[Rfam]
ryfA RNA: a 284-nucleotide sequence from Jejuibacter calystegiae. The source organism's lineage runs through Bacteria, Pseudomonadati, Gammaproteobacteria, Enterobacterales and Jejuibacter. By type it is a small RNA. This family consists of a number of bacterial RNA genes of 305 bases in length. The ryfA RNA gene is present in E. coli, Shigella flexneri and Salmonella species where it is found between the ydaN and dbpA genes. The function of this RNA is unknown.
RNA sequence: CUGGUCAGGUAAGCGGCCUUUCCAGCAGGGCUGUGUUACACAACGUAACGCAGGCACGAUCCAGUGCUUGUAUUCGCGGUGAUAUCUCCGGUGGUAAUGCCGUGAAGCGGUCUAUAGCAUGGACCGCACAAUGAAACGGUACUUUUGUAUUGUGCUCGUUGUUUCUGGUGCGUUGCUGUCAGCCGGGAAUGGAGGUUGGAGUAUUUCUCACAACACAUUCCUGCUGGUCGUCAACACAGCAGGCAGGUAAGCCCGGUAACCGCUCCGUCAGGGGCGGUUUCCUU
Numbered sequence: 001c002u003g004g005u006c007a008g009g010u011a012a013g014c015g016g017c018c019u020u021u022c023c024a025g026c027a028g029g030g031c032u033g034u035g036u037u038a039c040a041c042a043a044c045g046u047a048a049c050g051c052a053g054g055c056a057c058g059a060u061c062c063a064g065u066g067c068u069u070g071u072a073u074u075c076g077c078g079g080u081g082a083u084a085u086c087u088c089c090g091g092u093g094g095u096a097a098u099g100c101c102g103u104g105a106a107g108c109g110g111u112c113u114a115u116a117g118c119a120u121g122g123a124c125c126g127c128a129c130a131a132u133g134a135a136a137c138g139g140u141a142c143u144u145u146u147g148u149a150u151u152g153u154g155c156u157c158g159u160u161g162u163u164u165c166u167g168g169u170g171c172g173u174u175g176c177u178g179u180c181a182g183c184c185g186g187g188a189a190u191g192g193a194g195g196u197u198g199g200a201g202u203a204u205u206u207c208u209c210a211c212a213a214c215a216c217a218u219u220c221c222u223g224c225u226g227g228u229c230g231u232c233a234a235c236a237c238a239g240c241a242g243g244c245a246g247g248u249a250a251g252c253c254c255g256g257u258a259a260c261c262g263c264u265c266c267g268u269c270a271g272g273g274g275c276g277g278u279u280u281c282c283u284u
Base pairs, nucleotide, nucleotide: 009039010038011037012036014028016026017025042169044167051070052069053068054067055066056065057064073106074105075104076103077102078101079100080099081098083096084095085094086093107127108126109125110124111123112122113121128162129161130160131159132158133157134156136153137152138151139150140149141148142147170248171247173246174245175244176243177242198208199207200206201205225234255282256281258279259278260277261276262275263274264273265272266271